[Rfam]
RNA sequence: GUUUAGCCAUGAUUGCAAUGGCAUCCUUUUUAUGCUCAACUGGUUUCUGUGUUUUUCGUGAACCCUCAAAACAUUUAUAGUUACUUAAAAAUGCUGAUCAAAAAUUAAGCAUAAAAAGAUAUAAUGAAAAGCAUGAAAUAGC
Numbered sequence: 001g002u003u004u005a006g007c008c009a010u011g012a013u014u015g016c017a018a019u020g021g022c023a024u025c026c027u028u029u030u031u032a033u034g035c036u037c038a039a040c041u042g043g044u045u046u047c048u049g050u051g052u053u054u055u056u057c058g059u060g061a062a063c064c065c066u067c068a069a070a071a072c073a074u075u076u077a078u079a080g081u082u083a084c085u086u087a088a089a090a091a092u093g094c095u096g097a098u099c100a101a102a103a104a105u106u107a108a109g110c111a112u113a114a115a116a117a118g119a120u121a122u123a124a125u126g127a128a129a130a131g132c133a134u135g136a137a138a139u140a141g142c
Stems, first nucleotide, its partner, number of pairs: 009134003013130002018125002023120003029115008